[Rfam]
RNA: STAXI RNA
Organism: Pantoea sp. Eser
RNA sequence: CGUUGCUUCGUGCAACCAGCUAAUGCUCUGGCAGUCUGAGAGGAGCCCUUCGGGUGACCGAAAAAUCCUCGUGGCCUGAGAGAGGAUGCCUUCGGGUGGUAGAUCCGUUUAACCUCUGGAAACGGAUAUCACUGAACAGUGAUUGAGGUCAUU
Numbered sequence: 001c002g003u004u005g006c007u008u009c010g011u012g013c014a015a016c017c018a019g020c021u022a023a024u025g026c027u028c029u030g031g032c033a034g035u036c037u038g039a040g041a042g043g044a045g046c047c048c049u050u051c052g053g054g055u056g057a058c059c060g061a062a063a064a065a066u067c068c069u070c071g072u073g074g075c076c077u078g079a080g081a082g083a084g085g086a087u088g089c090c091u092u093c094g095g096g097u098g099g100u101a102g103a104u105c106c107g108u109u110u111a112a113c114c115u116c117u118g119g120a121a122a123c124g125g126a127u128a129u130c131a132c133u134g135a136a137c138a139g140u141g142a143u144u145g146a147g148g149u150c151a152u153u
Stems, first nucleotide, its partner, number of pairs: 002016005025046005032060001034058003047054002065087005074100003088097003104126005112149005128143006